[Rfam]
RNA sequence: UCCCAGUGAAGUAAGAUUCAGGGACAUAUCUCCUGUCACAGUCCCAGAUCCUGUAAAGGUGAACCCUCUGGGGCUGGCUGGGGAGAGGAGGAAAGUUUAUUGCAAAAGGAACUGUCUGAGGGAG
Number, nucleotide and partner (000 for none) at each position: 001u123002c122003c121004c120005a000006g000007u000008g000009a000010a000011g000012u000013a000014a000015g000016a000017u000018u000019c000020a000021g000022g000023g000024a000025c000026a000027u000028a000029u000030c000031u000032c000033c000034u000035g000036u000037c000038a000039c000040a000041g000042u000043c000044c000045c000046a000047g000048a000049u000050c000051c000052u000053g000054u000055a000056a000057a000058g000059g000060u000061g000062a000063a000064c000065c000066c000067u000068c000069u000070g000071g000072g000073g000074c000075u000076g000077g000078c000079u000080g000081g000082g000083g000084a000085g000086a000087g000088g000089a000090g000091g000092a000093a000094a000095g000096u000097u000098u000099a000100u000101u000102g000103c000104a000105a000106a000107a000108g000109g000110a000111a000112c000113u000114g000115u000116c000117u000118g000119a000120g004121g003122g002123a001124g000

Description
Small nucleolar RNA SNORD22: a 124-nucleotide RNA sequence from Callorhinus ursinus. Pairs were carried over by alignment from the consensus structure, which was predicted with PFOLD. Rfam links the family to the GO terms RNA processing and nucleolus. Taxonomically the source falls in Callorhinus (Eukaryota, Gnathostomata, Mammalia, Theria). For this family Rfam cites "A mammalian gene with introns instead of exons generating stable RNA products" (Tycowski et al., Nature, 1996).